[Rfam]
RNA sequence: CUGUCACUACUUCGAAGAUGUGCGACGGAGUCCGAGGUCGUGGCAGAGAGCUUGAGACGUCCAUCGCACCGCUUGUGAUUUUUAUAUGAAUUGCAACGGCCCUAACACGGGAGAGAACGCUGAGCGUUACAAC
Numbered sequence: 001c002u003g004u005c006a007c008u009a010c011u012u013c014g015a016a017g018a019u020g021u022g023c024g025a026c027g028g029a030g031u032c033c034g035a036g037g038u039c040g041u042g043g044c045a046g047a048g049a050g051c052u053u054g055a056g057a058c059g060u061c062c063a064u065c066g067c068a069c070c071g072c073u074u075g076u077g078a079u080u081u082u083u084a085u086a087u088g089a090a091u092u093g094c095a096a097c098g099g100c101c102c103u104a105a106c107a108c109g110g111g112a113g114a115g116a117a118c119g120c121u122g123a124g125c126g127u128u129a130c131a132a133c
Base pairs, nucleotide, nucleotide: 001046002045003044004043005042006041007040009038010037011036012035069099070098071097073096074095075094076093077092078091079090080089081088